[Rfam]
RNA sequence: AUGAGUGCCUGUUCACAUACUUUUUUCCGCAGUUGCGCUGCAAAUCGCGUCUUUGUCGCCGCUGACAGUCCGGCCAUGACGCGAAGCACGAGGCGCAAUGCGAUGACCGAAGUCGAGCCGCCUGCCCCGUUUGUCGGGCCGGCGGCUUUUUUA
Numbered sequence: 001a002u003g004a005g006u007g008c009c010u011g012u013u014c015a016c017a018u019a020c021u022u023u024u025u026u027c028c029g030c031a032g033u034u035g036c037g038c039u040g041c042a043a044a045u046c047g048c049g050u051c052u053u054u055g056u057c058g059c060c061g062c063u064g065a066c067a068g069u070c071c072g073g074c075c076a077u078g079a080c081g082c083g084a085a086g087c088a089c090g091a092g093g094c095g096c097a098a099u100g101c102g103a104u105g106a107c108c109g110a111a112g113u114c115g116a117g118c119c120g121c122c123u124g125c126c127c128c129g130u131u132u133g134u135c136g137g138g139c140c141g142g143c144g145g146c147u148u149u150u151u152u153a
Stems, first nucleotide, its partner, number of pairs: 007038002009035001011033003014029001046102005057095004081087002104115004116147006123141002126138003

Shown here is a 153-nucleotide RNA from Paraburkholderia sp. LEh10, a member of the family "Burkholderia sRNA 2". The family's RNA type in Rfam is small RNA. A search with the family's covariance model found it, with a score of 80 bits. For this family Rfam cites "Identification of novel small RNAs in Burkholderia cenocepacia KC-01 expressed under iron limitation and oxidative stress conditions" (Ghosh et al., Microbiology, 2017). Pairs were carried over by alignment from the consensus structure, which was predicted with RNAfold. Rfam's curators write: Upregulated in response to iron ion depletion. Lineage of the source: Bacteria > Pseudomonadota > Betaproteobacteria > Burkholderiales > Paraburkholderia.